[Rfam]
RNA sequence: GGCCACCUUUGGGGGGCUACAACAUAGGCGGGCAUGAUCCGCUGCAAGCAAACGGAAGACAGAAA
Numbered sequence: 001g002g003c004c005a006c007c008u009u010u011g012g013g014g015g016g017c018u019a020c021a022a023c024a025u026a027g028g029c030g031g032g033c034a035u036g037a038u039c040c041g042c043u044g045c046a047a048g049c050a051a052a053c054g055g056a057a058g059a060c061a062g063a064a065a
Base pairs, nucleotide, nucleotide: 001018002017003016004015006014007013008012027043028042029041030040031039
Shown here is a 65-nucleotide RNA sequence, a member of the family "L2-Alphaproteobacteria ribosomal protein leader". The sequence is in the family's curated seed alignment. It is annotated as a cis-regulatory leader. For this family Rfam cites "Discovery of 20 novel ribosomal leader candidates in bacteria and archaea" (Eckert and Weinberg, BMC Microbiol, 2020). The base pairs follow the family's consensus structure, which is taken from published work.